Rfam assigns this 81-nucleotide RNA from Glaciimonas sp. PCH181 to the family "Pseudomonas sRNA P9". From the family's description: This small RNA (sRNA) was computationally identified in the genome of the opportunistic pathogen Pseudomonas aeruginosa and its expression verified by northern blot analysis. P9 appears to be conserved in several Pseudomonas species in addition to Bordetella spp. In both Pseudomonas and Bordetella spp P9 appears to be located upstream of a predicted threonine dehydratase gene. It is annotated as a non-coding RNA gene. The match comes from Rfam's covariance-model search (49 bits). The organism belongs to Glaciimonas, within Bacteria. A reference for the family is Livny et al. (2006), "Identification of 17 Pseudomonas aeruginosa sRNAs and prediction of sRNA-encoding genes in 10 diverse pathogens using the bioinformatic tool sRNAPredict2", Nucleic Acids Res.
Nucleotides: 081
Stems, first nucleotide, its partner, number of pairs: 012030006059079002062076005
Number, partner (000 for none) and nucleotide at each position: 001000g002000c003000g004000a005000u006000u007000a008000u009000u010000c011000g012030c013029a014028c015027c016026a017025u018000u019000c020000a021000a022000a023000c024000a025017a026016u027015g028014g029013u030012g031000g032000g033000a034000u035000a036000g037000c038000g039000c040000u041000u042000g043000u044000u045000u046000u047000g048000c049000a050000g051000u052000a053000g054000c055000g056000a057000a058000u059079a060078a061000c062076c063075c064074g065073c066072c067000c068000u069000c070000g071000a072066g073065g074064c075063g076062g077000u078060u079059u080000u081000u